[Rfam]
RNA sequence: UUGCCAGCCCCAUACCUCCUUACACCCCACAGGGAGUGGGGUGUAAGGAGGUAUGGGGCUGGCAG
Numbered sequence: 001u002u003g004c005c006a007g008c009c010c011c012a013u014a015c016c017u018c019c020u021u022a023c024a025c026c027c028c029a030c031a032g033g034g035a036g037u038g039g040g041g042u043g044u045a046a047g048g049a050g051g052u053a054u055g056g057g058g059c060u061g062g063c064a065g
Stems, first nucleotide, its partner, number of pairs: 007059019027039004
RNA: mir-1 microRNA precursor family
Organism: Heliornis fulica